[Rfam]
RNA sequence: UACUACUAAACCCUGUCUCCACCUCCACGUGGUGACCGCUGGGAGCUUUCUUAACGAAAAGCUGCAGACGGAGAAGG
Numbered sequence: 001u002a003c004u005a006c007u008a009a010a011c012c013c014u015g016u017c018u019c020c021a022c023c024u025c026c027a028c029g030u031g032g033u034g035a036c037c038g039c040u041g042g043g044a045g046c047u048u049u050c051u052u053a054a055c056g057a058a059a060a061g062c063u064g065c066a067g068a069c070g071g072a073g074a075a076g077g
Base pairs, nucleotide, nucleotide: 012077013076014075016073018071019070021033022032023031044063045062046061047060048059049058050056

A member of the RNA family "drz-agam-1 ribozyme" from Hermetia illucens, 77 nucleotides long. Lineage of the source: Eukaryota > Bilateria > Insecta > Stratiomyomorpha > Hermetia.